Shown here is a 137-nucleotide RNA from Salmo salar, a member of the family "Small nucleolar RNA SNORA15". Rfam classes the family as an H/ACA-box small nucleolar RNA. Its family is annotated with RNA processing and nucleolus in the Gene Ontology. About the family: ACA15 is a member of the H/ACA class of snoRNA that guide the sites of modification of uridines to pseudouridines. NCBI's taxonomy places the organism under Eukaryota, Euteleostomi, Actinopterygii, Euteleosteomorpha, Salmo.

Nucleotides: 137
Stems, first nucleotide, its partner, number of pairs: 001055006014042006067130010083120001087116003094111004
Number, partner (000 for none) and nucleotide at each position: 001055g002054c003053a004052u005051g006050g007000a008000c009000g010000a011000a012000u013000u014042c015041u016040g017039u018038g019037u020000u021000a022000c023000u024000c025000u026000g027000u028000c029000a030000g031000u032000a033000g034000u035000a036000a037019a038018u039017g040016c041015a042014g043000u044000c045000a046000g047000a048000c049000a050006c051005c052004a053003u054002g055001c056000a057000a058000a059000a060000g061000u062000a063000u064000c065000g066000u067130u068129u069128c070127a071126c072125u073124c074123c075122u076121c077000u078000c079000u080000u081000a082000c083120u084000a085000a086000g087116g088115g089114c090000g091000a092000g093000u094111g095110c096109u097108a098000u099000c100000c101000u102000g103000u104000g105000u106000c107000u108097u109096a110095g111094c112000c113000a114089g115088u116087c117000a118000a119000c120083g121076g122075a123074g124073g125072a126071g127070u128069g129068a130067a131000c132000a133000c134000a135000u136000u137000g